The family of this 70-nucleotide RNA sequence from Homarus americanus is "mir-1000 microRNA precursor family".
The family has 13 seed sequences and 152 matches in Rfam 15.1.
NCBI's taxonomy places the organism under Eukaryota, Eumetazoa, Protostomia, Pancrustacea, Homarus.
The family's consensus secondary structure was predicted with RNAalifold.
RNA sequence: GGCGGGGAUAUUGUCCUGUCACAGCAGUAGAGGCUCUCAAGUACUGCUCGGUCGGGACAGUACCGCCGCC
Dot-bracket structure: ..(((......(((((((....(((((((............)))))))....)))))))......)))..